[Rfam]
RNA sequence: CAGAUACAGUGAUGACGGCAUAGUUCAGCAGAAUAUCCUGUGAUGAACACAUGCUUCGCCCCUAUCUGAUGUAUCUG
Numbered sequence: 001c002a003g004a005u006a007c008a009g010u011g012a013u014g015a016c017g018g019c020a021u022a023g024u025u026c027a028g029c030a031g032a033a034u035a036u037c038c039u040g041u042g043a044u045g046a047a048c049a050c051a052u053g054c055u056u057c058g059c060c061c062c063u064a065u066c067u068g069a070u071g072u073a074u075c076u077g
Stems, first nucleotide, its partner, number of pairs: 004074005
Small nucleolar RNA snR60/Z15/Z230/Z193/J17: a 77-nucleotide RNA sequence from Vidua chalybeata. Lineage of the source: Eukaryota > Craniata > Vertebrata > Tetrapoda > Vidua. By type it is a C/D-box small nucleolar RNA. Clan: SNORD77 clan. The family has 23 seed sequences and 3,592 matches in Rfam 15.1.